The record is a 93-nucleotide sequence from Theobroma cacao, which matches "Small nucleolar RNA snoR8a" in Rfam.
[Rfam]
RNA sequence: GAGUUAGCAAUGAUUAUAAAAAUAAUUCUUUAUUCCGACUUGCUUAAUUUAAUCAUAACAAACUUUUUAUUACAAUCAUAGAAUCUGAGUUGC
Numbered sequence: 001g002a003g004u005u006a007g008c009a010a011u012g013a014u015u016a017u018a019a020a021a022a023u024a025a026u027u028c029u030u031u032a033u034u035c036c037g038a039c040u041u042g043c044u045u046a047a048u049u050u051a052a053u054c055a056u057a058a059c060a061a062a063c064u065u066u067u068u069a070u071u072a073c074a075a076u077c078a079u080a081g082a083a084u085c086u087g088a089g090u091u092g093c
Stems, first nucleotide, its partner, number of pairs: 003093002006091002

The base pairs follow the family's consensus structure, which was predicted with WAR. The family has 7 seed sequences and 956 matches in Rfam 15.1. The family's RNA type in Rfam is C/D-box small nucleolar RNA.